[Rfam]
Nucleotides: 192
Stems, first nucleotide, its partner, number of pairs: 003189001005187007012179004017175003030160004035155003038151002054134003058130004067124007079112001085106007
Number, partner (000 for none) and nucleotide at each position: 001000u002000a003189g004000a005187g006186g007185c008184u009183g010182c011181g012179u013178u014177g015176u016000u017175c018174g019173u020000a021000u022000a023000c024000c025000c026000a027000u028000u029000a030160a031159g032158u033157u034000u035155u036154a037153a038151c039150c040000u041000u042000u043000a044000a045000g046000c047000u048000g049000u050000a051000a052000a053000c054134g055133g056132g057000a058130g059129u060128u061127u062000u063000a064000c065000c066000u067124a068123g069122a070121a071120a072119c073118a074000g075000g076000a077000a078000u079112g080000g081000c082000a083000c084000g085106c086105c087104c088103a089102g090101u091100u092000c093000u094000u095000u096000c097000g098000a099000u100091a101090a102089c103088u104087g105086g106085g107000a108000c109000a110000u111000a112079c113000a114000g115000g116000a117000u118073u119072g120071u121070u122069u123068c124067u125000g126000c127061g128060a129059a130058c131000a132056c133055c134054c135000a136000c137000u138000u139000g140000g141000a142000g143000a144000a145000g146000u147000g148000g149000u150039g151038g152000u153037u154036u155035a156000a157033a158032a159031c160030u161000u162000u163000c164000u165000a166000a167000g168000a169000c170000c171000a172000u173019a174018c175017g176015g177014c178013a179012a180000a181011u182010g183009c184008g185007g186006c187005u188000a189003u190000g191000c192000u